RNA sequence: CUCAGCAGGAUGAUGAGAAGGGCUGAAAUGCUGCCAAACCAGGUCCUUUUCUGAUGGUGGCUGGG
Numbered sequence: 001c002u003c004a005g006c007a008g009g010a011u012g013a014u015g016a017g018a019a020g021g022g023c024u025g026a027a028a029u030g031c032u033g034c035c036a037a038a039c040c041a042g043g044u045c046c047u048u049u050u051c052u053g054a055u056g057g058u059g060g061c062u063g064g065g
Stems, first nucleotide, its partner, number of pairs: 001065005015051010030039001032037001